[Rfam]
RNA sequence: CAGACCGGUGGCCUCGCCCCCACAAGACUCGACGACGCGGCGGCUCACUCACACGGAUGAACCGUCUCGAUCACCCGGGCGAUGACCGAACUCCCGACCUAGGCUCGCGCCACAACAUCAAACAGGACGGCCCCCGGCCGGGACGGCAAUCCCGACCGAGGGCCUGACCAGCAAGGAAGGACCAUCUUCCUC
Numbered sequence: 001c002a003g004a005c006c007g008g009u010g011g012c013c014u015c016g017c018c019c020c021c022a023c024a025a026g027a028c029u030c031g032a033c034g035a036c037g038c039g040g041c042g043g044c045u046c047a048c049u050c051a052c053a054c055g056g057a058u059g060a061a062c063c064g065u066c067u068c069g070a071u072c073a074c075c076c077g078g079g080c081g082a083u084g085a086c087c088g089a090a091c092u093c094c095c096g097a098c099c100u101a102g103g104c105u106c107g108c109g110c111c112a113c114a115a116c117a118u119c120a121a122a123c124a125g126g127a128c129g130g131c132c133c134c135c136g137g138c139c140g141g142g143a144c145g146g147c148a149a150u151c152c153c154g155a156c157c158g159a160g161g162g163c164c165u166g167a168c169c170a171g172c173a174a175g176g177a178a179g180g181a182c183c184a185u186c187u188u189c190c191u192c
Base pairs, nucleotide, nucleotide: 045060046059047058049056050055075102077100078099079098129164130163131162132161133160135158136157137156140153141152142151143150175190176189177188178187179186
RNA: Streptomyces sRNA 4677
Organism: Streptomyces avermitilis